About this RNA:
The record is an 81-nucleotide sequence from Carlito syrichta, which matches "Small nucleolar RNA SNORD115" in Rfam.
RNA sequence: GGGUCAAUGAUGAAAUAUUUGCCUUGUAUCUAGAGAGGAGUUGUCUUAAAACUCAUGCUCAGUAGAGUUACACUGAGAUCC
Numbered sequence: 001g002g003g004u005c006a007a008u009g010a011u012g013a014a015a016u017a018u019u020u021g022c023c024u025u026g027u028a029u030c031u032a033g034a035g036a037g038g039a040g041u042u043g044u045c046u047u048a049a050a051a052c053u054c055a056u057g058c059u060c061a062g063u064a065g066a067g068u069u070a071c072a073c074u075g076a077g078a079u080c081c
Stems, first nucleotide, its partner, number of pairs: 001081004005075002008072002